[Rfam]
RNA sequence: UUGUAAAAUUAAAUAUGCAUCCAUAUAAUCCUGAUAAUAGGGUUCGGGAGUUUCUACAAAAAGCCUUAAACUUUUUGGCUAUGGGUAAAUUUAUAAAGCAG
Dot-bracket structure: ..................(((((((...((((((.........)))))).......(((((((.......)))))))..)))))))...............
The family of this 101-nucleotide RNA from Clostridium pasteurianum is "Purine riboswitch aptamer".
The match comes from Rfam's covariance-model search (73 bits).
Riboswitches are metabolite binding domains within certain messenger RNAs that serve as precision sensors for their corresponding targets.
Lineage of the source: Bacteria > Eubacteriales > Clostridiaceae > Clostridium > Clostridium pasteurianum.
Its Rfam clan is "Purine riboswitches".